Glutamine riboswitch aptamer (glnA leader): a 48-nucleotide RNA sequence. For this family Rfam cites "Bacterial aptamers that selectively bind glutamine" (Ames and Breaker, RNA Biol, 2011). The base pairs follow the family's consensus structure, which is taken from published work. Its family is annotated with glutamine binding in the Gene Ontology.

RNA sequence: UACGUUCAUCUAUUAUAGACGGAAGUAGCGAAAGCGAAGGAACGCACC
Numbered sequence: 001u002a003c004g005u006u007c008a009u010c011u012a013u014u015a016u017a018g019a020c021g022g023a024a025g026u027a028g029c030g031a032a033a034g035c036g037a038a039g040g041a042a043c044g045c046a047c048c
Stems, first nucleotide, its partner, number of pairs: 003044005009019004022045001028035002